[Rfam]
RNA sequence: CGCAGGGAGCGGCCAAAACAAAAAAGAAUGAACCGGCAGCGCCAGCCACAGCGCGGCCGGUGAAU
Numbered sequence: 001c002g003c004a005g006g007g008a009g010c011g012g013c014c015a016a017a018a019c020a021a022a023a024a025a026g027a028a029u030g031a032a033c034c035g036g037c038a039g040c041g042c043c044a045g046c047c048a049c050a051g052c053g054c055g056g057c058c059g060g061u062g063a064a065u
Base pairs, nucleotide, nucleotide: 032061033060034059035058036057037056039054040053
Dot-bracket structure: ...............................((((((.((............)).))))))....

The family of this 65-nucleotide RNA from Cronobacter sakazakii is "DnaX ribosomal frameshifting element". This family represents a ribosomal frameshifting element found in the mRNA of the dnaX gene in E. coli. The dnaX gene has two encoded products tau and gamma which are produced in a 1:1 ratio. The gamma protein is synthesised due to programmed frameshifting and is shorter than tau. The two products of the dnaX gene are DNA polymerase III subunits. Taxonomically the source falls in Cronobacter sakazakii (Bacteria, Pseudomonadati, Pseudomonadota, Enterobacteriaceae). By type it is a frameshift element. The family's consensus secondary structure is taken from published work.